[Rfam]
RNA sequence: UGCAGUGUGAGGAGUAACGAAGCGAAAGCAAAAGUUCUCGGGGUCGAAACACGGAAAGACUCCCGAGAACUUUUCUGU
Numbered sequence: 001u002g003c004a005g006u007g008u009g010a011g012g013a014g015u016a017a018c019g020a021a022g023c024g025a026a027a028g029c030a031a032a033a034g035u036u037c038u039c040g041g042g043g044u045c046g047a048a049a050c051a052c053g054g055a056a057a058g059a060c061u062c063c064c065g066a067g068a069a070c071u072u073u074u075c076u077g078u
Stems, first nucleotide, its partner, number of pairs: 030074007040064003043060003